[Rfam]
RNA sequence: UUUACAAUUCGGUCGUUCACCAGGUCAUCUAGCUCUAAGUUAGUAAGCUAGCUGCCUAGUGAAGGGCAACAUUGUACU
Numbered sequence: 001u002u003u004a005c006a007a008u009u010c011g012g013u014c015g016u017u018c019a020c021c022a023g024g025u026c027a028u029c030u031a032g033c034u035c036u037a038a039g040u041u042a043g044u045a046a047g048c049u050a051g052c053u054g055c056c057u058a059g060u061g062a063a064g065g066g067c068a069a070c071a072u073u074g075u076a077c078u
Stems, first nucleotide, its partner, number of pairs: 004075005012067003017062004023056002029051005
A member of the RNA family "mir-980 microRNA precursor family" from Anopheles stephensi, 78 nucleotides long. The family has 8 seed sequences and 121 matches in Rfam 15.1. The organism belongs to Neocellia, within Eukaryota. It scores 59 bits against the family's covariance model. Its family is annotated with miRNA-mediated post-transcriptional gene silencing and RISC complex in the Gene Ontology. The base pairs follow the family's consensus structure, which was predicted with RNAalifold.